[Rfam]
RNA sequence: GACAUCAAAGGGGAUGGAGUUCCCCGCUCAUAACCGCCGCCAGGCUGAUGACUCCUAUUCGACA
Numbered sequence: 001g002a003c004a005u006c007a008a009a010g011g012g013g014a015u016g017g018a019g020u021u022c023c024c025c026g027c028u029c030a031u032a033a034c035c036g037c038c039g040c041c042a043g044g045c046u047g048a049u050g051a052c053u054c055c056u057a058u059u060c061g062a063c064a
Base pairs, nucleotide, nucleotide: 010025011024012023013022016055017054018053019052020051021050036045037044038043